This 174-nucleotide RNA sequence belongs to the Rfam family "RAGATH-9 RNA". On this family, see Weinberg et al., Nat Chem Biol 2015: "New classes of self-cleaving ribozymes revealed by comparative genomics analysis". The sequence is in the family's curated seed alignment.
RNA sequence: UCAGCCAACCUAAAGAACUAUUUAUAGCCAAAUCCCUAAUGGAAGUUUAGCAGUUACCAAACUGCUAUUCAAGAGUACAAUGGACUAUACAAUGGUCAACCAAUUUAUUGGUCAGUGAUGAAGGAAACGGGUUACCUAUGAAUAAGAGAUACAAAUAAAUAGGAUAGUUCUUUU
Numbered sequence: 001u002c003a004g005c006c007a008a009c010c011u012a013a014a015g016a017a018c019u020a021u022u023u024a025u026a027g028c029c030a031a032a033u034c035c036c037u038a039a040u041g042g043a044a045g046u047u048u049a050g051c052a053g054u055u056a057c058c059a060a061a062c063u064g065c066u067a068u069u070c071a072a073g074a075g076u077a078c079a080a081u082g083g084a085c086u087a088u089a090c091a092a093u094g095g096u097c098a099a100c101c102a103a104u105u106u107a108u109u110g111g112u113c114a115g116u117g118a119u120g121a122a123g124g125a126a127a128c129g130g131g132u133u134a135c136c137u138a139u140g141a142a143u144a145a146g147a148g149a150u151a152c153a154a155a156u157a158a159a160u161a162g163g164a165u166a167g168u169u170c171u172u173u174u
Stems, first nucleotide, its partner, number of pairs: 012173009025134005040079002048067006083097004099112005135163005